[Rfam]
RNA sequence: UGCAAGCGCACUCUGUGUCAUAUUGAACUGUAGCCCCCAUGUGAUUACAAUUUGUAAGCUUGCCAGAGGAAAUAUGCAAUCGGUGCUCUGCUUAUCCAUGUGGCAGCGAUCUUGUUGCUGCUGCAUUGAAUUCGGGCUCCACACUAG
Numbered sequence: 001u002g003c004a005a006g007c008g009c010a011c012u013c014u015g016u017g018u019c020a021u022a023u024u025g026a027a028c029u030g031u032a033g034c035c036c037c038c039a040u041g042u043g044a045u046u047a048c049a050a051u052u053u054g055u056a057a058g059c060u061u062g063c064c065a066g067a068g069g070a071a072a073u074a075u076g077c078a079a080u081c082g083g084u085g086c087u088c089u090g091c092u093u094a095u096c097c098a099u100g101u102g103g104c105a106g107c108g109a110u111c112u113u114g115u116u117g118c119u120g121c122u123g124c125a126u127u128g129a130a131u132u133c134g135g136g137c138u139c140c141a142c143a144c145u146a147g
Stems, first nucleotide, its partner, number of pairs: 002063006010055002014049003017045007025038001070145001082139002085137003089134002095129002098126008107117002
Source information: Rfam assigns this 147-nucleotide RNA from Drosophila kikkawai to the family "Small nucleolar RNA psi18S-841/snoR66". Its Rfam clan is "SNORA28 clan". The base pairs follow the family's consensus structure, which was predicted with RNAfold. Gene Ontology terms of the family: RNA processing and nucleolus. Rfam classes the family as an H/ACA-box small nucleolar RNA. It scores 96 bits against the family's covariance model. About the family: psi18S-841 is a member of the H/ACA class of snoRNA. This family is responsible for guiding the modification of uridine 841 in Drosophila 18S rRNA to pseudouridine.